RNA: glmS glucosamine-6-phosphate activated ribozyme aptamer
RNA sequence: UAUCUUUUAAAAGCGCCAGCACUGUGGCUGCCCGACAUGGAGCACAGUGGACGAGGUGGAGGUUUAUCGAAAUGUUCGGCGGAUGCCUCCCGGUCAUGUAUCAGGACCGUAAGCUCAGUUACAAAACAUAGGGGCAACUUUAUGGACAAAAUCUGAGUAUGAUAUGUU
Numbered sequence: 001u002a003u004c005u006u007u008u009a010a011a012a013g014c015g016c017c018a019g020c021a022c023u024g025u026g027g028c029u030g031c032c033c034g035a036c037a038u039g040g041a042g043c044a045c046a047g048u049g050g051a052c053g054a055g056g057u058g059g060a061g062g063u064u065u066a067u068c069g070a071a072a073u074g075u076u077c078g079g080c081g082g083a084u085g086c087c088u089c090c091c092g093g094u095c096a097u098g099u100a101u102c103a104g105g106a107c108c109g110u111a112a113g114c115u116c117a118g119u120u121a122c123a124a125a126a127c128a129u130a131g132g133g134g135c136a137a138c139u140u141u142a143u144g145g146a147c148a149a150a151a152u153c154u155g156a157g158u159a160u161g162a163u164a165u166g167u168u
Stems, first nucleotide, its partner, number of pairs: 020049007029040001058090005067079004091109005113158006127144007